[Rfam]
RNA sequence: GGGGUCGUGGGGUAGCCUGGAAUCCUAUGGCGUUCGGGAUGCUGUGACCUGAGUUCGAAUCUCAGCGACCCCA
Numbered sequence: 001g002g003g004g005u006c007g008u009g010g011g012g013u014a015g016c017c018u019g020g021a022a023u024c025c026u027a028u029g030g031c032g033u034u035c036g037g038g039a040u041g042c043u044g045u046g047a048c049c050u051g052a053g054u055u056c057g058a059a060u061c062u063c064a065g066c067g068a069c070c071c072c073a
Stems, first nucleotide, its partner, number of pairs: 001072007010026003028044005049065005